[Rfam]
Shown here is a 168-nucleotide RNA from Medicago truncatula, a member of the family "MIR2619 microRNA precursor family". Pairs were carried over by alignment from the consensus structure, which was predicted with RNAalifold. It scores 148 bits against the family's covariance model.
RNA sequence: AAACAGCCCCCUAUAUUUUGAUUUUUUGGCAGUUUUGGACCCCCAAGGUAAAAAAAAAAAAAAAAAUGACACGUGGCACCUCACUUAAGAUGCCACGUCAGCGUUGACCGAGUCAACAAUGGAUUGGGAGUCCAAAACUGCCAAAGAAUCAAAACAUAGGGGUAGUUU
Numbered sequence: 001a002a003a004c005a006g007c008c009c010c011c012u013a014u015a016u017u018u019u020g021a022u023u024u025u026u027u028g029g030c031a032g033u034u035u036u037g038g039a040c041c042c043c044c045a046a047g048g049u050a051a052a053a054a055a056a057a058a059a060a061a062a063a064a065a066a067u068g069a070c071a072c073g074u075g076g077c078a079c080c081u082c083a084c085u086u087a088a089g090a091u092g093c094c095a096c097g098u099c100a101g102c103g104u105u106g107a108c109c110g111a112g113u114c115a116a117c118a119a120u121g122g123a124u125u126g127g128g129a130g131u132c133c134a135a136a137a138c139u140g141c142c143a144a145a146g147a148a149u150c151a152a153a154a155c156a157u158a159g160g161g162g163u164a165g166u167u168u
Base pairs, nucleotide, nucleotide: 001168002167004165006163007162008161012158013157014156016154017153018152019151020150021149022148023147024146025145026144027143028142029141030140031139032138033137034136035135036134037133038132039131040130042128043127044126045125071098072097074095075094076093077092078091080089
Lineage of the source: Eukaryota > Magnoliopsida > Mesangiospermae > Pentapetalae > Medicago.